ZMP/ZTP riboswitch aptamer (pfl RNA motif): an 84-nucleotide RNA sequence from Microbacterium ginsengisoli.
Pairs were carried over by alignment from the consensus structure, which is taken from published work.
A search with the family's covariance model found it, with a score of 55 bits.
RNA sequence: UCGACCCGUCGCGACUGGCGUUGAGGUGGGACACCACCGGGGAGCGACCGACACGGUUAUCGACCGCACGCCUGGGCCGAUACG
Numbered sequence: 001u002c003g004a005c006c007c008g009u010c011g012c013g014a015c016u017g018g019c020g021u022u023g024a025g026g027u028g029g030g031a032c033a034c035c036a037c038c039g040g041g042g043a044g045c046g047a048c049c050g051a052c053a054c055g056g057u058u059a060u061c062g063a064c065c066g067c068a069c070g071c072c073u074g075g076g077c078c079g080a081u082a083c084g
Stems, first nucleotide, its partner, number of pairs: 006050001008048005015041002017072005026037004061079002064076002
Dot-bracket structure: .....(.(((((..(([[[[[....((((....))))..))..))))).)..........((.((..]]]]]..)).)).....